[Rfam]
RNA sequence: CUGGGAACGGCACGACCGCAACUCCGACCUGCCGUCCGAUUGGGCGGCUUGGGAUUGCGGGCGUGU
Dot-bracket structure: .........((((..((((((..((.....(((((((....)))))))...)).))))))..))))
Numbered sequence: 001c002u003g004g005g006a007a008c009g010g011c012a013c014g015a016c017c018g019c020a021a022c023u024c025c026g027a028c029c030u031g032c033c034g035u036c037c038g039a040u041u042g043g044g045c046g047g048c049u050u051g052g053g054a055u056u057g058c059g060g061g062c063g064u065g066u
Stems, first nucleotide, its partner, number of pairs: 010066004016060006024053002031048007
Annotation: Shown here is a 66-nucleotide RNA sequence from Halococcoides cellulosivorans, a member of the family "S15-Halobacteria ribosomal protein leader". By type it is a cis-regulatory leader. On this family, see Eckert and Weinberg, BMC Microbiol 2020: "Discovery of 20 novel ribosomal leader candidates in bacteria and archaea". Lineage of the source: Archaea > Methanobacteriati > Methanobacteriota > Haloarculaceae > Halococcoides. It scores 74 bits against the family's covariance model. Its Rfam clan is "Ribosomal Protein S15 Leader clan".